[Rfam]
RNA sequence: CAAGACGUGGUUCGAAACCAUCCCACGUAAAAAAACUAAGGGAGA
Numbered sequence: 001c002a003a004g005a006c007g008u009g010g011u012u013c014g015a016a017a018c019c020a021u022c023c024c025a026c027g028u029a030a031a032a033a034a035a036c037u038a039a040g041g042g043a044g045a
Stems, first nucleotide, its partner, number of pairs: 006027005016037001
Shown here is a 45-nucleotide sequence from Ornithinibacillus bavariensis, a member of the family "PreQ1 (pre queuosine) riboswitch aptamer". About the family: This family is a bacterial riboswitch that binds to the metabolite preQ1, an intermediate in the biosynthesis of the modified nucleoside queuosine from GTP. One example of this riboswitch is located in the leader of the Bacillus subtilis ykvJKLM (queCDEF) operon which encodes four genes necessary for queuosine production. A reference for the family is Schroeder et al. (2020), "Analysis of a preQ1-I riboswitch in effector-free and bound states reveals a metabolite-programmed nucleobase-stacking spine that controls gene regulation", Nucleic Acids Res.